[Rfam]
This 79-nucleotide sequence belongs to the Rfam family "skipping-rope RNA". Pairs were carried over by alignment from the consensus structure, which is taken from published work.

RNA sequence: AUGAAUUGAGGGUAGAAAGGUUCCUACCGCACCUCAUAGAGGUACCUGAGAUGACGAGGUUACUGAACGUCCAAUUUAU
Number, nucleotide and partner (000 for none) at each position: 001a079002u078003g077004a076005a075006u074007u073008g072009a000010g000011g028012g027013u026014a025015g024016a000017a000018a000019g064020g063021u062022u000023c000024c015025u014026a013027c012028c011029g000030c048031a043032c042033c041034u040035c000036a000037u000038a000039g000040a034041g033042g032043u031044a000045c000046c000047u000048g030049a000050g000051a000052u000053g071054a070055c069056g068057a000058g000059g000060u000061u000062a021063c020064u019065g000066a000067a000068c056069g055070u054071c053072c008073a007074a006075u005076u004077u003078a002079u001
Description:
The sequence is in the family's curated seed alignment.